A member of the RNA family "mir-395 microRNA precursor family" from Trema orientale, 98 nucleotides long. Rfam links the family to the GO terms miRNA-mediated post-transcriptional gene silencing and RISC complex. From the family's description: mir-395 was identified in both Arabidopsis thaliana and Oryza sativa computationally and was later experimentally verified. mir-395 is thought to target mRNAs coding for ATP sulphurylases. Pairs were carried over by alignment from the consensus structure, which was predicted with PFOLD.

RNA sequence: UUGUUCUCUGGAGUUCCCUUGACCACUUCAUUUCACUUCACUGGAGUCAGUAAAAUUUAUAUACUACUGAAGUGUUUGAGGGAACUCUGGGGGGUCAU
Numbered sequence: 001u002u003g004u005u006c007u008c009u010g011g012a013g014u015u016c017c018c019u020u021g022a023c024c025a026c027u028u029c030a031u032u033u034c035a036c037u038u039c040a041c042u043g044g045a046g047u048c049a050g051u052a053a054a055a056u057u058u059a060u061a062u063a064c065u066a067c068u069g070a071a072g073u074g075u076u077u078g079a080g081g082g083a084a085c086u087c088u089g090g091g092g093g094g095u096c097a098u
Base pairs, nucleotide, nucleotide: 005094006093007091008090009089011087012086013085014084015083016082017081018080019079020078022077024074025073026072027071028070029069030068032066